Annotation:
Shown here is a 121-nucleotide RNA, a member of the family "mir-166 microRNA precursor family". Rfam links the family to the GO terms miRNA-mediated post-transcriptional gene silencing and RISC complex. Rfam 15.1 lists 2,599 matches to the family in 229 species. From the family's description: This family represents the plant microRNA (miRNA) precursor mir-166. On this family, see Reinhart et al., Genes Dev 2002: "MicroRNAs in plants".
RNA sequence: UCUGAGUGGAAUGUUGUCUGGUUCAAGGUCUCAUGCACCUUGCGGUUUUGAGGAUGAUUUGUGCAAGGUUUUUCAUUCCUCUCAUCCGUGGGAUCUCGGACCAGGCUUCAUUCCCCUCAGA
Numbered sequence: 001u002c003u004g005a006g007u008g009g010a011a012u013g014u015u016g017u018c019u020g021g022u023u024c025a026a027g028g029u030c031u032c033a034u035g036c037a038c039c040u041u042g043c044g045g046u047u048u049u050g051a052g053g054a055u056g057a058u059u060u061g062u063g064c065a066a067g068g069u070u071u072u073u074c075a076u077u078c079c080u081c082u083c084a085u086c087c088g089u090g091g092g093a094u095c096u097c098g099g100a101c102c103a104g105g106c107u108u109c110a111u112u113c114c115c116c117u118c119a120g121a
Stems, first nucleotide, its partner, number of pairs: 001121006008114006016106006024098001026096006